A member of the RNA family "Archaeal large subunit ribosomal RNA" from Halodesulfurarchaeum formicicum, 250 nucleotides of a longer RNA.
Rfam 15.1 lists 2,955 matches to the family in 1,139 species.
Its Rfam clan is "LSU clan".
Lineage of the source: Archaea > Methanobacteriati > Halobacteria > Halobacteriaceae > Halodesulfurarchaeum.
RNA sequence: UGGUGUCUGACGGGAACGUCCGUAUAGUACGAGAGGAACUAUGGACGGAGGCCACUGGUGUACCGGUUGUCCAACAGGGCAAUGCCGGGCAGCUACGCCUCGCGGGGUAAGGGCUGAACGCAUCUAAGCCCGAAACCCACCCGGAAAAGAGACACCGCUGAGACCACUCGUAGAAGACGAGUUCGAUAGACUCGGGGUGUACGCACCGAGGCAACGAGGUGUUUAGCCCGCGAGUACUAACAGGUCGAAG
Numbered sequence: 001u002g003g004u005g006u007c008u009g010a011c012g013g014g015a016a017c018g019u020c021c022g023u024a025u026a027g028u029a030c031g032a033g034a035g036g037a038a039c040u041a042u043g044g045a046c047g048g049a050g051g052c053c054a055c056u057g058g059u060g061u062a063c064c065g066g067u068u069g070u071c072c073a074a075c076a077g078g079g080c081a082a083u084g085c086c087g088g089g090c091a092g093c094u095a096c097g098c099c100u101c102g103c104g105g106g107g108u109a110a111g112g113g114c115u116g117a118a119c120g121c122a123u124c125u126a127a128g129c130c131c132g133a134a135a136c137c138c139a140c141c142c143g144g145a146a147a148a149g150a151g152a153c154a155c156c157g158c159u160g161a162g163a164c165c166a167c168u169c170g171u172a173g174a175a176g177a178c179g180a181g182u183u184c185g186a187u188a189g190a191c192u193c194g195g196g197g198u199g200u201a202c203g204c205a206c207c208g209a210g211g212c213a214a215c216g217a218g219g220u221g222u223u224u225a226g227c228c229c230g231c232g233a234g235u236a237c238u239a240a241c242a243g244g245u246c247g248a249a250g
Stems, first nucleotide, its partner, number of pairs: 001157008011143004017047008048101005056095003063088005068081005104138003111131005162246004166182005187239003190235005195229003203222005210215001